[Rfam]
RNA sequence: UGUGUUUCGGUGAUGAGACCACGGAAUGCUGCGUCAGGCAUGACGCCCGACUCGCAUGAGGAAACUCUCCAUGCUGCCUUCCUUCUGAGAACACA
Numbered sequence: 001u002g003u004g005u006u007u008c009g010g011u012g013a014u015g016a017g018a019c020c021a022c023g024g025a026a027u028g029c030u031g032c033g034u035c036a037g038g039c040a041u042g043a044c045g046c047c048c049g050a051c052u053c054g055c056a057u058g059a060g061g062a063a064a065c066u067c068u069c070c071a072u073g074c075u076g077c078c079u080u081c082c083u084u085c086u087g088a089g090a091a092c093a094c095a
Stems, first nucleotide, its partner, number of pairs: 001095005

Background
A member of the RNA family "Small nucleolar RNA U83B" from Albula glossodonta, 95 nucleotides long. From the family's description: U83B belongs to the C/D family of snoRNAs. U83B like U83A has no documented RNA target and they share the same host gene with the C/D box snoRNA U43 (RPL3). N.B. U83A/B/C have no sequence similarity with the U83 snoRNA that was cloned by Jady and Kiss (2000). The organism belongs to Albula, within Eukaryota. Its family is annotated with RNA processing and nucleolus in the Gene Ontology.